[Rfam]
A member of the RNA family "mir-2807 microRNA precursor family" from Bombyx mori, 84 nucleotides long.
RNA sequence: UUAACUGAAAUUUGUAUGGAGUUGGAACGUUUGCCUACGUUUGCCGCUAGAGGCGGUGUACCAAAGACAUACAAAUUUGAGUGA
Numbered sequence: 001u002u003a004a005c006u007g008a009a010a011u012u013u014g015u016a017u018g019g020a021g022u023u024g025g026a027a028c029g030u031u032u033g034c035c036u037a038c039g040u041u042u043g044c045c046g047c048u049a050g051a052g053g054c055g056g057u058g059u060a061c062c063a064a065a066g067a068c069a070u071a072c073a074a075a076u077u078u079g080a081g082u083g084a
Stems, first nucleotide, its partner, number of pairs: 008078009018068001022064004027059003034052001036050001039047002
Gene Ontology terms of the family: miRNA-mediated post-transcriptional gene silencing and RISC complex.
For this family Rfam cites "Novel microRNAs in silkworm (Bombyx mori)" (Cai et al., Funct Integr Genomics, 2010).
Taxonomically the source falls in Bombyx (Eukaryota, Arthropoda, Panorpida, Ditrysia).